[Rfam]
This 73-nucleotide RNA from Dicrurus megarhynchus belongs to the Rfam family "mir-1175 microRNA precursor family". The source organism's lineage runs through Eukaryota, Tetrapoda, Theropoda, Passeriformes and Dicrurus. Its family is annotated with RISC complex and miRNA-mediated post-transcriptional gene silencing in the Gene Ontology. The base pairs follow the family's consensus structure, which was predicted with RNAalifold.

RNA sequence: UCACGAAAGUGGAGGAUAGGAUCUGCACUGAAUGUUUAAAAUCAGUGAGAUUCUUAUUCCUCUACUUACUUGU
Numbered sequence: 001u002c003a004c005g006a007a008a009g010u011g012g013a014g015g016a017u018a019g020g021a022u023c024u025g026c027a028c029u030g031a032a033u034g035u036u037u038a039a040a041a042u043c044a045g046u047g048a049g050a051u052u053c054u055u056a057u058u059c060c061u062c063u064a065c066u067u068a069c070u071u072g073u
Base pairs, nucleotide, nucleotide: 007067008066009065010064011063012062013061014060015059016058017056022050023049026047027046028045029044030043